[Rfam]
RNA sequence: AAAGUUGGAUAUGGGUGCAUAAAGAUUCCCAACAGGACGAGGGAGAAGUAACCCUCAAGUGAUACAGGUAAUCAUCCAGUCGGUUCUGUAUCGCUACCGUAGUU
Numbered sequence: 001a002a003a004g005u006u007g008g009a010u011a012u013g014g015g016u017g018c019a020u021a022a023a024g025a026u027u028c029c030c031a032a033c034a035g036g037a038c039g040a041g042g043g044a045g046a047a048g049u050a051a052c053c054c055u056c057a058a059g060u061g062a063u064a065c066a067g068g069u070a071a072u073c074a075u076c077c078a079g080u081c082g083g084u085u086c087u088g089u090a091u092c093g094c095u096a097c098c099g100u101a102g103u104u
Base pairs, nucleotide, nucleotide: 004033005032006031007030008029011026012025039056040055041054042053043052058095059094060093061092062091063090064089065088066087067086070085071084072083073082
The family of this 104-nucleotide RNA sequence is "Methylobacterium-1 RNA". The base pairs follow the family's consensus structure, which is taken from published work. It is annotated as a small RNA.